[Rfam]
RNA sequence: ACCGUCUAGGCAAUCGGUUUUCACCCUGGUCUCAGAGUGAAAUGAGUCUGAGAUCAUCGUGAAAGCUAGUUGUCUUACUCUA
Dot-bracket structure: ........((((...(((((((((..((((((.(((((...))...))).))))))..)))))))))...))))........
Numbered sequence: 001a002c003c004g005u006c007u008a009g010g011c012a013a014u015c016g017g018u019u020u021u022c023a024c025c026c027u028g029g030u031c032u033c034a035g036a037g038u039g040a041a042a043u044g045a046g047u048c049u050g051a052g053a054u055c056a057u058c059g060u061g062a063a064a065g066c067u068a069g070u071u072g073u074c075u076u077a078c079u080c081u082a
Stems, first nucleotide, its partner, number of pairs: 009074004016067009027056006034049003037043002
Source information: A member of the RNA family "mir-81 microRNA precursor family" from Angiostrongylus costaricensis, 82 nucleotides long. Its Rfam clan is "mir-81 clan". The family's consensus secondary structure was predicted with RNAalifold.